[Rfam]
RNA: mir-240 microRNA precursor family
Organism: Caenorhabditis elegans
RNA sequence: UUGUUAGAAACUUUUUCAAAUCGAGGAUUUUGAGACUAGAAUGCUUGAAUUGUACUAGCAUACUGGCCCCCAAAUCUUCGCUUAGAAAUACAGUUCA
Numbered sequence: 001u002u003g004u005u006a007g008a009a010a011c012u013u014u015u016u017c018a019a020a021u022c023g024a025g026g027a028u029u030u031u032g033a034g035a036c037u038a039g040a041a042u043g044c045u046u047g048a049a050u051u052g053u054a055c056u057a058g059c060a061u062a063c064u065g066g067c068c069c070c071c072a073a074a075u076c077u078u079c080g081c082u083u084a085g086a087a088a089u090a091c092a093g094u095u096c097a
Stems, first nucleotide, its partner, number of pairs: 009095004015087003019083002022080009032070001034068001036066002041061004